[Rfam]
RNA sequence: GUGGGAGGAAGCUCACUGUAGAGGUCACAUGCAGAGUGUCCAAUCACUCGAUGGCCCUCCUCGGGGAAGGUCUGAGACAAGAGCCAAUCGCUGCCCUUGCAGGGCAUCACCUGAUCCGGGUGAGUGAGGUCCCAGAAAUUCUGGUCCAAGUGUUGCUAUGAGCAGGAGAAGCGCGAUCGUCAAAAAUGAAACUGACGUGCGUGGAUGCAGCGACACUGGGAUUGGAAAAGCUCACGGCUGGCAAUUCUGAGUUCAAUGUGUGAGGUGAGGCACGUGAGUCUCACAACCUAAUUCAGACUACUCUCCUUCCAC
Numbered sequence: 001g002u003g004g005g006a007g008g009a010a011g012c013u014c015a016c017u018g019u020a021g022a023g024g025u026c027a028c029a030u031g032c033a034g035a036g037u038g039u040c041c042a043a044u045c046a047c048u049c050g051a052u053g054g055c056c057c058u059c060c061u062c063g064g065g066g067a068a069g070g071u072c073u074g075a076g077a078c079a080a081g082a083g084c085c086a087a088u089c090g091c092u093g094c095c096c097u098u099g100c101a102g103g104g105c106a107u108c109a110c111c112u113g114a115u116c117c118g119g120g121u122g123a124g125u126g127a128g129g130u131c132c133c134a135g136a137a138a139u140u141c142u143g144g145u146c147c148a149a150g151u152g153u154u155g156c157u158a159u160g161a162g163c164a165g166g167a168g169a170a171g172c173g174c175g176a177u178c179g180u181c182a183a184a185a186a187u188g189a190a191a192c193u194g195a196c197g198u199g200c201g202u203g204g205a206u207g208c209a210g211c212g213a214c215a216c217u218g219g220g221a222u223u224g225g226a227a228a229a230g231c232u233c234a235c236g237g238c239u240g241g242c243a244a245u246u247c248u249g250a251g252u253u254c255a256a257u258g259u260g261u262g263a264g265g266u267g268a269g270g271c272a273c274g275u276g277a278g279u280c281u282c283a284c285a286a287c288c289u290a291a292u293u294c295a296g297a298c299u300a301c302u303c304u305c306c307u308u309c310c311a312c
Stems, first nucleotide, its partner, number of pairs: 001312004007306003012264005021062004034049005072296005082239004092106005107123006124235005130229001145221003265284007

Annotation: The record is a 312-nucleotide RNA sequence from Erpetoichthys calabaricus, which matches "Nuclear RNase P" in Rfam. The base pairs follow the family's consensus structure, which is taken from published work. Taxonomically the source falls in Erpetoichthys (Eukaryota, Opisthokonta, Chordata, Teleostomi). Rfam describes the family as follows. Ribonuclease P (RNase P) is a ubiquitous endoribonuclease, found in archaea, bacteria and eukarya as well as chloroplasts and mitochondria. Its best characterised activity is the generation of mature 5'-ends of tRNAs by cleaving the 5'-leader elements of precursor-tRNAs. Cellular RNase Ps are ribonucleoproteins. RNA from bacterial RNase Ps retains its catalytic activity in the absence of the protein subunit, i.e. it is a ribozyme. For this family Rfam cites "Ribonuclease P: unity and diversity in a tRNA processing ribozyme" (Frank and Pace, Annu Rev Biochem, 1998). The family's RNA type in Rfam is ribozyme. A search with the family's covariance model found it, with a score of 212 bits.